A member of the RNA family "mir-399 microRNA precursor family" from Aegilops tauschii, 100 nucleotides long. The match comes from Rfam's covariance-model search (68 bits). The organism belongs to Aegilops tauschii, within Eukaryota. Rfam links the family to the GO terms miRNA-mediated post-transcriptional gene silencing and RISC complex. From the family's description: mir-399 was identified in both Arabidopsis thaliana and Oryza sativa computationally and was later experimentally verified. mir-399 is thought to target mRNAs coding for a phosphatase transporter. The mature sequence is excised from the 3' arm of the hairpin. Pairs were carried over by alignment from the consensus structure, which was predicted with PFOLD. The literature on the family includes a 2004 paper in Mol Cell by Jones-Rhoades and Bartel, "Computational Identification of Plant MicroRNAs and Their Targets, Including a Stress-Induced miRNA". The family has 13 seed sequences and 2,396 matches in Rfam 15.1.
Nucleotides: 100
Base pairs, nucleotide, nucleotide: 005096006095007094008093009092011090013088014087015086016085018083019082021080022079023078024077027074028073029072030071031070032069033068034067
Number, partner (000 for none) and nucleotide at each position: 001000u002000c003000a004000u005096g006095c007094a008093u009092u010000a011090c012000c013088g014087g015086g016085c017000u018083a019082g020000u021080c022079u023078u024077c025000c026000u027074u028073g029072g030071c031070a032069g033068u034067g035000u036000u037000c038000g039000u040000a041000c042000c043000c044000g045000c046000g047000c048000a049000a050000c051000g052000u053000g054000g055000c056000g057000a058000u059000g060000c061000a062000c063000c064000g065000g066000c067034c068033a069032c070031u071030g072029c073028c074027a075000a076000a077024g078023g079022a080021g081000a082019u083018u084000u085016g086015c087014c088013c089000a090011g091000c092009a093008a094007u095006g096005c097000a098000c099000c100000a